[Rfam]
RNA sequence: CUCCGAUAAGAGCAAAACUGGGGCGAUCCAGUGACGCAAAGCGGCAGGUCCAUCAAAGCUUAAAAGGCAGGGGUGGAUGGCUGAGCUACCGAA
Numbered sequence: 001c002u003c004c005g006a007u008a009a010g011a012g013c014a015a016a017a018c019u020g021g022g023g024c025g026a027u028c029c030a031g032u033g034a035c036g037c038a039a040a041g042c043g044g045c046a047g048g049u050c051c052a053u054c055a056a057a058g059c060u061u062a063a064a065a066g067g068c069a070g071g072g073g074u075g076g077a078u079g080g081c082u083g084a085g086c087u088a089c090c091g092a093a
Stems, first nucleotide, its partner, number of pairs: 012037002017032006040087003045083003048078007